[Rfam]
RNA sequence: UGUGUAGAGUCAAAGUGCUUACAGUGCAGGUAGUUCAGUAUGACGUCUACUGCAGUGGAGGCACUUCAAGCCCUACACA
Numbered sequence: 001u002g003u004g005u006a007g008a009g010u011c012a013a014a015g016u017g018c019u020u021a022c023a024g025u026g027c028a029g030g031u032a033g034u035u036c037a038g039u040a041u042g043a044c045g046u047c048u049a050c051u052g053c054a055g056u057g058g059a060g061g062c063a064c065u066u067c068a069a070g071c072c073c074u075a076c077a078c079a
Base pairs, nucleotide, nucleotide: 004076005075006074007073009071010070013066014065015064016063017062018061019060020059022057023056025054026053027052029051030050031049032048033047

Rfam assigns this 79-nucleotide sequence from Clarias magur to the family "mir-17 microRNA precursor family". Taxonomically the source falls in Clarias (Eukaryota, Actinopteri, Teleostei, Characiphysae). A reference for the family is Liu et al. (2025), "Structural Features Within Precursor microRNA-20a Regulate Dicer-TRBP Processing", J Mol Biol. About the family: This family represents the microRNA (miRNA) precursor mir-17, family, which includes mir-20, mir-91, and mir-103. miRNAs are transcribed as ~70nt precursors (modelled here) and subsequently processed by the Dicer enzyme to give a ~22nt product. In this case the mature sequence comes from the 3' arm of the precursor. The extents of the hairpin precursors are not generally known and are estimated based on hairpin prediction. Gene Ontology terms of the family: RISC complex and miRNA-mediated post-transcriptional gene silencing.